The family of this 78-nucleotide sequence from Ziziphus jujuba is "Plastid-clpP 5UTR RNA". Rfam's curators write: Plastid clpP is a non-coding RNA (ncRNA) recognised in plastids. It was found in the prime untranslated region (5UTR) of a protease complex subunit (clpP) in plastids, suggesting a posible cis-regulatory function. A search with the family's covariance model found it, with a score of 55 bits. A reference for the family is Richter et al. (2023), "Retrograde signaling in plants: A critical review focusing on the GUN pathway and beyond", Plant Commun.
Nucleotides: 078
Stems, first nucleotide, its partner, number of pairs: 003022002007018004043077002051069003
Number, partner (000 for none) and nucleotide at each position: 001000a002000a003022u004021u005000u006000a007018g008017u009016u010015u011000g012000u013000a014000g015010g016009a017008a018007c019000a020000a021004a022003a023000g024000g025000a026000a027000g028000c029000a030000g031000a032000u033000c034000u035000a036000u037000u038000c039000u040000a041000c042000a043077c044076a045000c046000g047000a048000u049000a050000a051069g052068u053067a054000c055000c056000a057000u058000a059000u060000a061000a062000u063000u064000u065000g066000a067053u068052a069051c070000a071000a072000c073000a074000u075000c076044u077043g078000g